[Rfam]
RNA: MIR8024 microRNA precursor family
Organism: Solanum lycopersicum
Nucleotides: 077
Base pairs, nucleotide, nucleotide: 001075002074004072005071006070009067010066011065012064013063014062017059018058019057020056021055025050026049027048028047032044033043034042035041036040
Number, partner (000 for none) and nucleotide at each position: 001075u002074u003000a004072a005071a006070g007000a008000a009067u010066u011065u012064g013063a014062a015000g016000g017059a018058u019057u020056c021055a022000u023000u024000u025050u026049g027048u028047a029000g030000a031000u032044u033043u034042g035041a036040a037000g038000a039000c040036u041035u042034c043033a044032a045000c046000u047028u048027g049026c050025a051000u052000a053000c054000u055021u056020g057019a058018a059017u060000a061000a062014u063013u064012u065011g066010a067009a068000g069000a070006c071005u072004u073000c074002a075001g076000c077000u